[Rfam]
RNA sequence: UUGGGUGGCUGAAUUAGAGAUCGGCACCCGUAAUUUUAAUUUAUGUAUUUUUGGAGUUGUAAUAUGUCUCUAAGUACUGAAGCAAAAGCGCAAAUUAUUGCUGAAUUUGGUCGUGAUGCG
Numbered sequence: 001u002u003g004g005g006u007g008g009c010u011g012a013a014u015u016a017g018a019g020a021u022c023g024g025c026a027c028c029c030g031u032a033a034u035u036u037u038a039a040u041u042u043a044u045g046u047a048u049u050u051u052u053g054g055a056g057u058u059g060u061a062a063u064a065u066g067u068c069u070c071u072a073a074g075u076a077c078u079g080a081a082g083c084a085a086a087a088g089c090g091c092a093a094a095u096u097a098u099u100g101c102u103g104a105a106u107u108u109g110g111u112c113g114u115g116a117u118g119c120g
Stems, first nucleotide, its partner, number of pairs: 008025005050074007

Record summary
A member of the RNA family "Ribosomal S15 leader" from Photorhabdus luminescens, 120 nucleotides long. The E. coli Ribosomal S15 gene 5' UTR can form two alternative structures. One that is a series of three hairpins, The other includes a pseudoknot. This structure causes translational regulation of the S15 protein. Rfam links the family to the GO term regulation of translation, ncRNA-mediated. The organism belongs to Photorhabdus, within Bacteria. On this family, see Benard et al., Biochimie 1996: "Pseudoknot and translational control in the expression of the S15 ribosomal protein".